Overview: Shown here is a 156-nucleotide RNA from Acetivibrio clariflavus, a member of the family "FMN riboswitch aptamer (RFN element)".

[Rfam]
RNA sequence: UAUUAUCUUCAGGGAUAGGUGAGAAUCCUUACCGGCGGUAGGCAAUUAAAUUGCGAGCCCGCGAGCCUUAUGGCAGAUCCGGUCAAAAUCCGGAGCCGACAGUGUAUUGUGUUUGUAUUUUAUAAACACAAUGAGUCUGGAUGGGAGAAGAUAAUU
Numbered sequence: 001u002a003u004u005a006u007c008u009u010c011a012g013g014g015a016u017a018g019g020u021g022a023g024a025a026u027c028c029u030u031a032c033c034g035g036c037g038g039u040a041g042g043c044a045a046u047u048a049a050a051u052u053g054c055g056a057g058c059c060c061g062c063g064a065g066c067c068u069u070a071u072g073g074c075a076g077a078u079c080c081g082g083u084c085a086a087a088a089u090c091c092g093g094a095g096c097c098g099a100c101a102g103u104g105u106a107u108u109g110u111g112u113u114u115g116u117a118u119u120u121u122a123u124a125a126a127c128a129c130a131a132u133g134a135g136u137c138u139g140g141a142u143g144g145g146a147g148a149a150g151a152u153a154a155u156u
Stems, first nucleotide, its partner, number of pairs: 003154008017029003033098002035062004057096002065074003078094005100139003
Taxonomically the source falls in Acetivibrio clariflavus (Bacteria, Bacillati, Bacillota, Clostridia).